[Rfam]
RNA sequence: CAUGAGCCCUCAUGGCAUUCAUGUUAUCAUUCAAAUCAUGAAUGUUCUGGAGGCCCGUGGC
Numbered sequence: 001c002a003u004g005a006g007c008c009c010u011c012a013u014g015g016c017a018u019u020c021a022u023g024u025u026a027u028c029a030u031u032c033a034a035a036u037c038a039u040g041a042a043u044g045u046u047c048u049g050g051a052g053g054c055c056c057g058u059g060g061c
Stems, first nucleotide, its partner, number of pairs: 003057002006054003010050003014046007022038002

Notes
The family of this 61-nucleotide RNA sequence from Panagrellus redivivus is "mir-7939 microRNA precursor family". Pairs were carried over by alignment from the consensus structure, which was predicted with RNAalifold. The source organism's lineage runs through Eukaryota, Opisthokonta, Protostomia, Panagrolaimomorpha and Panagrellus.